[Rfam]
About this RNA
Shown here is a 62-nucleotide RNA from Ictalurus punctatus, a member of the family "mir-221 microRNA precursor family". Rfam's curators put it in the seed alignment. NCBI's taxonomy places the organism under Eukaryota, Vertebrata, Euteleostomi, Otophysi, Ictalurus. The family has 72 seed sequences and 1,797 matches in Rfam 15.1. The base pairs follow the family's consensus structure, which was predicted with RNAalifold.

RNA sequence: ACCUGGCAUACAAUGUAGAUUUCUGUGUGGUACUAUCUACAGCUACAUUGUCUGCUGGGUUU
Numbered sequence: 001a002c003c004u005g006g007c008a009u010a011c012a013a014u015g016u017a018g019a020u021u022u023c024u025g026u027g028u029g030g031u032a033c034u035a036u037c038u039a040c041a042g043c044u045a046c047a048u049u050g051u052c053u054g055c056u057g058g059g060u061u062u
Base pairs, nucleotide, nucleotide: 003058004057005056006055007054008053010051011050012049013048014047015046016045017044018043023042024041025040026039